[Rfam]
RNA sequence: UGAACUGGGAGUGCGAGACAAAUCCCAGUGGGAAAGUUCCAGAAAUGGAACUAUCGCAUUUCCCGACC
Numbered sequence: 001u002g003a004a005c006u007g008g009g010a011g012u013g014c015g016a017g018a019c020a021a022a023u024c025c026c027a028g029u030g031g032g033a034a035a036g037u038u039c040c041a042g043a044a045a046u047g048g049a050a051c052u053a054u055c056g057c058a059u060u061u062c063c064c065g066a067c068c
Stems, first nucleotide, its partner, number of pairs: 007064004012058005023033004035052007
RNA: DUF3800-II RNA